[Rfam]
RNA sequence: CCCGCAACAGGACGGUAAGACCCCGUGAACCUUUACUAUAACUUGACAUUGAGUUUUGUUUUGUGAUGUGUAGAAUAGAUGGGAGGCUUUGAAGUGGGAGCGCCAGCUUUCAUGGAGCCAUCUUUGAAAUACCAUCCUUCGCAAAAUGGGAUUCUAACGAUUAGCCGUUAUCCGGCAGUCGGACAUUGUCAGGCGGGUAGUUUGACUGGGGCGGUCGCCUCCUAAAGAGUAACGGAGGCGUGCAAAGGUCACCUCAAACCGAAUAGAAAUCGGUAGUAGAGUAUAAAGGCAUAAGGUGGCUUGACUGCGAGAGAGACAUCUCGAGCAGGUACGAAAGUAGGUCUUAGUGAUCCGGUGGUCCCGAGUGGAAGGGCCAUCGCUAAACGGACAAAAGGUACUCCGGGGAUAACAGGCUUAUCUCCCCCAAGAGUUCAUAUCGACGGGGAGGUUUGGCACCUCGAUGUCGGCUCAUCGCAUCCUGGGGCUGGAGCAGGUCCCAAGGGUUUGGCUGUUCGCCAAUUAAAGCGGUACGCGAGCUGGGUUCAGAACGUCGUGAGACAGUUUGGUCCCUAUCCGUUGUGGGCGUU
Numbered sequence: 001c002c003c004g005c006a007a008c009a010g011g012a013c014g015g016u017a018a019g020a021c022c023c024c025g026u027g028a029a030c031c032u033u034u035a036c037u038a039u040a041a042c043u044u045g046a047c048a049u050u051g052a053g054u055u056u057u058g059u060u061u062u063g064u065g066a067u068g069u070g071u072a073g074a075a076u077a078g079a080u081g082g083g084a085g086g087c088u089u090u091g092a093a094g095u096g097g098g099a100g101c102g103c104c105a106g107c108u109u110u111c112a113u114g115g116a117g118c119c120a121u122c123u124u125u126g127a128a129a130u131a132c133c134a135u136c137c138u139u140c141g142c143a144a145a146a147u148g149g150g151a152u153u154c155u156a157a158c159g160a161u162u163a164g165c166c167g168u169u170a171u172c173c174g175g176c177a178g179u180c181g182g183a184c185a186u187u188g189u190c191a192g193g194c195g196g197g198u199a200g201u202u203u204g205a206c207u208g209g210g211g212c213g214g215u216c217g218c219c220u221c222c223u224a225a226a227g228a229g230u231a232a233c234g235g236a237g238g239c240g241u242g243c244a245a246a247g248g249u250c251a252c253c254u255c256a257a258a259c260c261g262a263a264u265a266g267a268a269a270u271c272g273g274u275a276g277u278a279g280a281g282u283a284u285a286a287a288g289g290c291a292u293a294a295g296g297u298g299g300c301u302u303g304a305c306u307g308c309g310a311g312a313g314a315g316a317c318a319u320c321u322c323g324a325g326c327a328g329g330u331a332c333g334a335a336a337g338u339a340g341g342u343c344u345u346a347g348u349g350a351u352c353c354g355g356u357g358g359u360c361c362c363g364a365g366u367g368g369a370a371g372g373g374c375c376a377u378c379g380c381u382a383a384a385c386g387g388a389c390a391a392a393a394g395g396u397a398c399u400c401c402g403g404g405g406a407u408a409a410c411a412g413g414c415u416u417a418u419c420u421c422c423c424c425c426a427a428g429a430g431u432u433c434a435u436a437u438c439g440a441c442g443g444g445g446a447g448g449u450u451u452g453g454c455a456c457c458u459c460g461a462u463g464u465c466g467g468c469u470c471a472u473c474g475c476a477u478c479c480u481g482g483g484g485c486u487g488g489a490g491c492a493g494g495u496c497c498c499a500a501g502g503g504u505u506u507g508g509c510u511g512u513u514c515g516c517c518a519a520u521u522a523a524a525g526c527g528g529u530a531c532g533c534g535a536g537c538u539g540g541g542u543u544c545a546g547a548a549c550g551u552c553g554u555g556a557g558a559c560a561g562u563u564u565g566g567u568c569c570c571u572a573u574c575c576g577u578u579g580u581g582g583g584c585g586u587u
Stems, first nucleotide, its partner, number of pairs: 001583008010575003014570002022404004027400002029396005035201004042193007051154016068137001078136005085119003094113008158181003162178001164176004204216004217239006240385001242342002248300006254280002258274005281290002305328004311322003330339003353379007361372002413454003417451001418448007428438002465540001466538004470532001471529005478503002481498006505519005546564004550559003
Shown here is a 587-nucleotide part of an RNA from Brachyspira murdochii, a member of the family "Bacterial large subunit ribosomal RNA". Pairs were carried over by alignment from the consensus structure, which is taken from published work. Taxonomically the source falls in Brachyspira murdochii (Bacteria, Spirochaetia, Brachyspirales, Brachyspira). It is one of the family's seed sequences.